The record is a 131-nucleotide RNA from Streptomyces colonosanans, which matches "Streptomyces RNA 6925" in Rfam. The organism belongs to Streptomyces, within Bacteria. Identified by deep sequencing of transcriptome at the end of exponential growth phase.
[Rfam]
RNA sequence: UUUGUGUUGCCGCGCUGAGACGCCCCCUGGAAGGGAUCAGCGUGGUGAUGGUGGCGAUCUCCGCCCUUGCAGGGGCGGUAUGGCCGAUUGAGCGUUCGGCGUCCAGGAGUUGGCCCUCCCGGGCGCCGUCG
Numbered sequence: 001u002u003u004g005u006g007u008u009g010c011c012g013c014g015c016u017g018a019g020a021c022g023c024c025c026c027c028u029g030g031a032a033g034g035g036a037u038c039a040g041c042g043u044g045g046u047g048a049u050g051g052u053g054g055c056g057a058u059c060u061c062c063g064c065c066c067u068u069g070c071a072g073g074g075g076c077g078g079u080a081u082g083g084c085c086g087a088u089u090g091a092g093c094g095u096u097c098g099g100c101g102u103c104c105a106g107g108a109g110u111u112g113g114c115c116c117u118c119c120c121g122g123g124c125g126c127c128g129u130c131g
Base pairs, nucleotide, nucleotide: 002092006049007048010045011044012043013042014041015040016039017038018037023034024033052086053085054084055083061078062077063076064075065074066073067072097128098127099126100125101124102123103122104121106119107118108117109116